Rfam assigns this 106-nucleotide RNA from Hanstruepera neustonica to the family "SAM riboswitch aptamer (S box leader)". On this family, see Epshtein et al., Proc Natl Acad Sci U S A 2003: "The riboswitch-mediated control of sulfur metabolism in bacteria". Pairs were carried over by alignment from the consensus structure, which is taken from published work. Lineage of the source: Bacteria > Pseudomonadati > Flavobacteriia > Flavobacteriales > Hanstruepera.

[Rfam]
RNA sequence: UUGUUAUCACGAAAGGCAGAGGGAAUAGACCCGUUGAAGCCUUAGCAACCCUUUAUUUUUAAAGAAGGUGCUAAAUUCUACCCAUAUAGAAUGGGACAGAUAACCC
Numbered sequence: 001u002u003g004u005u006a007u008c009a010c011g012a013a014a015g016g017c018a019g020a021g022g023g024a025a026u027a028g029a030c031c032c033g034u035u036g037a038a039g040c041c042u043u044a045g046c047a048a049c050c051c052u053u054u055a056u057u058u059u060u061a062a063a064g065a066a067g068g069u070g071c072u073a074a075a076u077u078c079u080a081c082c083c084a085u086a087u088a089g090a091a092u093g094g095g096a097c098a099g100a101u102a103a104c105c106c
Base pairs, nucleotide, nucleotide: 003104004103005102006101007100008099013043014042015041016040017039021032022031023030026080027079028078029077044072045071046070047069049068050067051064052063053062054061076098081095082094083093084092085091